[Rfam]
RNA sequence: CAUCGUAAAAAAGCGCCAGAACGAGGCAUAGGGCUUCGUUGACGAGGAGAAGGAGGCUGCUUUAAAAAAGCAGGUUAUCGAGAUUUCGGCGGAAACCUUCCGGCUGAUCACAGUCGCAGGAACCUUGCAAAAACUGCGGGCAACCGCAAAACAAACCGGGUUCUUAAGUGAUUU
Numbered sequence: 001c002a003u004c005g006u007a008a009a010a011a012a013g014c015g016c017c018a019g020a021a022c023g024a025g026g027c028a029u030a031g032g033g034c035u036u037c038g039u040u041g042a043c044g045a046g047g048a049g050a051a052g053g054a055g056g057c058u059g060c061u062u063u064a065a066a067a068a069a070g071c072a073g074g075u076u077a078u079c080g081a082g083a084u085u086u087c088g089g090c091g092g093a094a095a096c097c098u099u100c101c102g103g104c105u106g107a108u109c110a111c112a113g114u115c116g117c118a119g120g121a122a123c124c125u126u127g128c129a130a131a132a133a134c135u136g137c138g139g140g141c142a143a144c145c146g147c148a149a150a151a152c153a154a155a156c157c158g159g160g161u162u163c164u165u166a167a168g169u170g171a172u173u174u
Base pairs, nucleotide, nucleotide: 020040021039022038023037024036025035026034027033049100050099051098052097053096057089058088101116102115103114104113105112106111119164120163121162122161123160124159125158135148136147137146138145139144
glmS glucosamine-6-phosphate activated ribozyme aptamer: a 174-nucleotide sequence from Anaerobacterium chartisolvens. NCBI's taxonomy places the organism under Bacteria, Bacillota, Clostridia, Oscillospiraceae, Anaerobacterium. Rfam links the family to the GO terms regulation of gene expression and catalytic activity.